TPP riboswitch aptamer (THI element): a 97-nucleotide RNA sequence from Serpentinicella alkaliphila. The match comes from Rfam's covariance-model search (71 bits).

[Rfam]
RNA sequence: UAGUUUUGCUGGGGGUGCUUAAGCUGAGAAGGAAAAAUCCUAACCCUUUGAACCUGAUGUAGGUAAAUCUACCGUAGGGAAGCGUAUAUGUAAAUUU
Numbered sequence: 001u002a003g004u005u006u007u008g009c010u011g012g013g014g015g016u017g018c019u020u021a022a023g024c025u026g027a028g029a030a031g032g033a034a035a036a037a038u039c040c041u042a043a044c045c046c047u048u049u050g051a052a053c054c055u056g057a058u059g060u061a062g063g064u065a066a067a068u069c070u071a072c073c074g075u076a077g078g079g080a081a082g083c084g085u086a087u088a089u090g091u092a093a094a095u096u097u
Stems, first nucleotide, its partner, number of pairs: 007084004011047004017024002031040003053078004059072004
Rfam's curators write: Vitamin B(1) in its active form thiamin pyrophosphate (TPP) is an essential coenzyme that is synthesised by coupling of pyrimidine and thiazole moieties in bacteria. The previously detected thiamin-regulatory element, thi box was extended, resulting in a new, highly conserved RNA secondary structure, the THI element, which is widely distributed in eubacteria and also occurs in some archaea. Analysis of operon structures identified a large number of new candidate thiamin-regulated genes, mostly transporters, in various prokaryotic organisms. The THI element is a riboswitch that directly binds to TPP to regulate gene expression through a variety of mechanisms in archaea, bacteria and eukaryotes. through a variety of mechanisms in archaea, bacteria and eukaryotes.